[Rfam]
RNA sequence: UGACGGGGGCCCGCACAAGCGGUGGAGCAUGUGGUUUAAUUCGACGCAACGCGCAGAACCUUACCUGGUCUUGACAUCCUCGGAAUCCUUCAGAGAUGAGGGAGUGCCCGCAAGGGAACCGAGAGACAGGUGCUGCAUGGCUGUCGUCAGCUCGUGUCGUGAGAUGUUGGGUUAAGUCCCGCAACGAGCGCAACCCUCGCCUUUAGUUGCCACGCAAGUGGAUCUCUAGAGGGACUGCCGGUGUUAAACCGGAGGAAGGUGGGGAUGACGUCAAGUCCUCAUGGCCUUUAUGACCAGGGCUACACACGUGCUACAAUGGCCGGUACAGAGCGCUGCAAACCCGCGAGGGGGAGCUAAUCGCAGAAAACCGGUCUCAGUUCAGAUUGGAGUCUGCAACUCGACUCCAUGAAGGAGGAAUCGCUAGUAAUCGCAGAUCAGCACGCUGCGGUGAAUACGUUCCCGGGCCUUGUACACACCGCCCGUCACACCAUGGGAGUCGAUUGCUCCAGAAGUCAUCUCACCAAUAGAUGCCCAAGGAGUGCUCGGUAACUGGGGUGAAGUCUAACACGGUAGCCGUAGGGGAACCUGCGGCUGGAUCAC
Numbered sequence: 001u002g003a004c005g006g007g008g009g010c011c012c013g014c015a016c017a018a019g020c021g022g023u024g025g026a027g028c029a030u031g032u033g034g035u036u037u038a039a040u041u042c043g044a045c046g047c048a049a050c051g052c053g054c055a056g057a058a059c060c061u062u063a064c065c066u067g068g069u070c071u072u073g074a075c076a077u078c079c080u081c082g083g084a085a086u087c088c089u090u091c092a093g094a095g096a097u098g099a100g101g102g103a104g105u106g107c108c109c110g111c112a113a114g115g116g117a118a119c120c121g122a123g124a125g126a127c128a129g130g131u132g133c134u135g136c137a138u139g140g141c142u143g144u145c146g147u148c149a150g151c152u153c154g155u156g157u158c159g160u161g162a163g164a165u166g167u168u169g170g171g172u173u174a175a176g177u178c179c180c181g182c183a184a185c186g187a188g189c190g191c192a193a194c195c196c197u198c199g200c201c202u203u204u205a206g207u208u209g210c211c212a213c214g215c216a217a218g219u220g221g222a223u224c225u226c227u228a229g230a231g232g233g234a235c236u237g238c239c240g241g242u243g244u245u246a247a248a249c250c251g252g253a254g255g256a257a258g259g260u261g262g263g264g265a266u267g268a269c270g271u272c273a274a275g276u277c278c279u280c281a282u283g284g285c286c287u288u289u290a291u292g293a294c295c296a297g298g299g300c301u302a303c304a305c306a307c308g309u310g311c312u313a314c315a316a317u318g319g320c321c322g323g324u325a326c327a328g329a330g331c332g333c334u335g336c337a338a339a340c341c342c343g344c345g346a347g348g349g350g351g352a353g354c355u356a357a358u359c360g361c362a363g364a365a366a367a368c369c370g371g372u373c374u375c376a377g378u379u380c381a382g383a384u385u386g387g388a389g390u391c392u393g394c395a396a397c398u399c400g401a402c403u404c405c406a407u408g409a410a411g412g413a414g415g416a417a418u419c420g421c422u423a424g425u426a427a428u429c430g431c432a433g434a435u436c437a438g439c440a441c442g443c444u445g446c447g448g449u450g451a452a453u454a455c456g457u458u459c460c461c462g463g464g465c466c467u468u469g470u471a472c473a474c475a476c477c478g479c480c481c482g483u484c485a486c487a488c489c490a491u492g493g494g495a496g497u498c499g500a501u502u503g504c505u506c507c508a509g510a511a512g513u514c515a516u517c518u519c520a521c522c523a524a525u526a527g528a529u530g531c532c533c534a535a536g537g538a539g540u541g542c543u544c545g546g547u548a549a550c551u552g553g554g555g556u557g558a559a560g561u562c563u564a565a566c567a568c569g570g571u572a573g574c575c576g577u578a579g580g581g582g583a584a585c586c587u588g589c590g591g592c593u594g595g596a597u598c599a600c
Base pairs, nucleotide, nucleotide: 001473002472003470004469005468007467008466009465010464011463012462013461015457016456019421020420021419022418023417024314026312027311028310029309030308031307032306033305034303035302040055042053043052064298065297066296067295068294069293070292077126078125079123080122081121082120083119086103087102088101089100090099091098092097105118107116108115129287130286132285133284134283135282138281139280140276141275142274143272145270146269150189151188152187153186154185155184156165157164158163168181169180170179171178195264196263197262198261200232201231202230203229204228205227206226210221211220235255236254238252239251240250241249242248318373319372320371321370322369323368324367330361331360332359335354336353340349341348342347380411385406386405387404388403389402390401391400427449428448429447430446431445432444433443476569478566482562486557487556488555489554491552492551493550496547497546498545499544500543502541503540504539505538506537507536512532514530515529516528517527520525571594572593573592574591575590576589577588578587579586580585
RNA: Bacterial small subunit ribosomal RNA, nucleotides 923 to 1522
Organism: Corallococcus coralloides